Nucleotides: 109
Stems, first nucleotide, its partner, number of pairs: 001109008013042005021031003025075004043067004048063002050060003076098009
Number, partner (000 for none) and nucleotide at each position: 001109g002108a003107u004106u005105u006104a007103u008102a009000a010000a011000g012000a013042a014041g015040a016039g017038g018000c019000g020000a021031g022030a023029g024000a025075c026074a027073g028072g029023c030022u031021c032000u033000a034000u035000g036000a037000c038017c039016c040015u041014c042013u043067g044066g045065c046064a047000a048063c049062c050060u051059g052058g053000a054000a055000a056000a057000a058052c059051c060050a061000a062049g063048g064046u065045g066044c067043c068000a069000a070000u071000u072028c073027c074026u075025g076098c077097c078096a079095a080094a081093u082092g083091a084090g085000a086000u087000g088000g089000u090084c091083u092082u093081a094080u095079u096078u097077g098076g099000a100000a101000c102008u103007a104006u105005a106004a107003a108002u109001u
The record is a 109-nucleotide RNA sequence from Algoriphagus zhangzhouensis, which matches "SAM riboswitch aptamer (S box leader)" in Rfam.
Rfam describes the family as follows. The SAM riboswitch is found upstream of a number of genes which code for proteins involved in methionine or cysteine biosynthesis in Gram-positive bacteria.
The source organism's lineage runs through Bacteria, Pseudomonadati, Cytophagia, Cytophagales and Algoriphagus.
The match comes from Rfam's covariance-model search (78 bits).